[Rfam]
RNA sequence: UCUCAGUUGCGGGAUUUUGGGGGCAAGAUGUGUUUUUUUUUUUAAAUCCAACUGGCCCGCAAAGUCCCGCUUCUGGUG
Numbered sequence: 001u002c003u004c005a006g007u008u009g010c011g012g013g014a015u016u017u018u019g020g021g022g023g024c025a026a027g028a029u030g031u032g033u034u035u036u037u038u039u040u041u042u043u044a045a046a047u048c049c050a051a052c053u054g055g056c057c058c059g060c061a062a063a064g065u066c067c068c069g070c071u072u073c074u075g076g077u078g
Base pairs, nucleotide, nucleotide: 003076004075005074006073010069011068012067013066015064016063017062018061019060021058022057023056024055026053027052029050030049
The family of this 78-nucleotide RNA from Scleropages formosus is "mir-193 microRNA precursor family". A reference for the family is Jin et al. (2009), "Characterization of bovine miRNAs by sequencing and bioinformatics analysis", BMC Mol Biol.